[Rfam]
RNA sequence: CCGUGCUACACGGGGCGUUAGCGGUGCCUUGUAACCCGCAAUCCGCUACAGCGGGGUGGACGCCCGUCAUGAGGGCCUGUCUUGUGGGGUCUGGCUUCUGCAAGUGGUGCUGACAGUUGGGUCCUGCGCAACGGAAACCUAUAAACCCCGCCAGGUCCGGAAGGAAGCAACGGUAAGUAGGCCAUUUCGGGUGCCGCAGGGGAGCCUGGCUCGAGCUAACUACAGAGGUAACGCUCGGAAGGCAGCGUUCGAGGUCGGGUGCACGG
Numbered sequence: 001c002c003g004u005g006c007u008a009c010a011c012g013g014g015g016c017g018u019u020a021g022c023g024g025u026g027c028c029u030u031g032u033a034a035c036c037c038g039c040a041a042u043c044c045g046c047u048a049c050a051g052c053g054g055g056g057u058g059g060a061c062g063c064c065c066g067u068c069a070u071g072a073g074g075g076c077c078u079g080u081c082u083u084g085u086g087g088g089g090u091c092u093g094g095c096u097u098c099u100g101c102a103a104g105u106g107g108u109g110c111u112g113a114c115a116g117u118u119g120g121g122u123c124c125u126g127c128g129c130a131a132c133g134g135a136a137a138c139c140u141a142u143a144a145a146c147c148c149c150g151c152c153a154g155g156u157c158c159g160g161a162a163g164g165a166a167g168c169a170a171c172g173g174u175a176a177g178u179a180g181g182c183c184a185u186u187u188c189g190g191g192u193g194c195c196g197c198a199g200g201g202g203a204g205c206c207u208g209g210c211u212c213g214a215g216c217u218a219a220c221u222a223c224a225g226a227g228g229u230a231a232c233g234c235u236c237g238g239a240a241g242g243c244a245g246c247g248u249u250c251g252a253g254g255u256c257g258g259g260u261g262c263a264c265g266g
Stems, first nucleotide, its partner, number of pairs: 001266006009058003012030008035055005064259002066256001068254001070252001073250004079243005085237004092230002096227005104220002106217003115211008123200006129191001132189005138181005148173003156165003
Shown here is a 266-nucleotide RNA sequence from Heliobacterium mobile, a member of the family "Bacterial large signal recognition particle RNA". The family's RNA type in Rfam is non-coding RNA gene. Rfam's curators write: The signal recognition particle (SRP) is a universally conserved ribonucleoprotein involved in the co-translational targeting of proteins to membranes.